Background:
Rfam assigns this 169-nucleotide sequence from Streptomyces sp. MMG1533 to the family "c-di-AMP riboswitch aptamer (ydaO/yuaA leader)". Pairs were carried over by alignment from the consensus structure. The organism belongs to Streptomyces, within Bacteria.

RNA sequence: GCACGGCCUCCGCCGAGUCCGACGCGCCGCCGUGCGCCCGGAGCCGGGGACCCACCGACCUUGGGGUGAAUCGACCCGACUCCCUUCCAGGGAGCGGCCGUAGGGCAAACCUUCCUAACCACCCGCCCGAACCCGACAGCUAACUCGGUAGGCGGAACGUGGAAGGAGU
Numbered sequence: 001g002c003a004c005g006g007c008c009u010c011c012g013c014c015g016a017g018u019c020c021g022a023c024g025c026g027c028c029g030c031c032g033u034g035c036g037c038c039c040g041g042a043g044c045c046g047g048g049g050a051c052c053c054a055c056c057g058a059c060c061u062u063g064g065g066g067u068g069a070a071u072c073g074a075c076c077c078g079a080c081u082c083c084c085u086u087c088c089a090g091g092g093a094g095c096g097g098c099c100g101u102a103g104g105g106c107a108a109a110c111c112u113u114c115c116u117a118a119c120c121a122c123c124c125g126c127c128c129g130a131a132c133c134c135g136a137c138a139g140c141u142a143a144c145u146c147g148g149u150a151g152g153c154g155g156a157a158c159g160u161g162g163a164a165g166g167a168g169u
Stems, first nucleotide, its partner, number of pairs: 011154004018042003043149006053063002064134003072100002075097001103128004